[Rfam]
RNA: mir-9/mir-79 microRNA precursor family
Organism: Cotesia congregata
RNA sequence: CGGACAUUUUCUUUGGUUAUCUAGCUGUAUGAGUGUGUUUAGACUUCAUAAAGCUAGGUUACCGGAGUUAAGAUCCU
Numbered sequence: 001c002g003g004a005c006a007u008u009u010u011c012u013u014u015g016g017u018u019a020u021c022u023a024g025c026u027g028u029a030u031g032a033g034u035g036u037g038u039u040u041a042g043a044c045u046u047c048a049u050a051a052a053g054c055u056a057g058g059u060u061a062c063c064g065g066a067g068u069u070a071a072g073a074u075c076c077u
Stems, first nucleotide, its partner, number of pairs: 002076003007071002011067007019059008028050006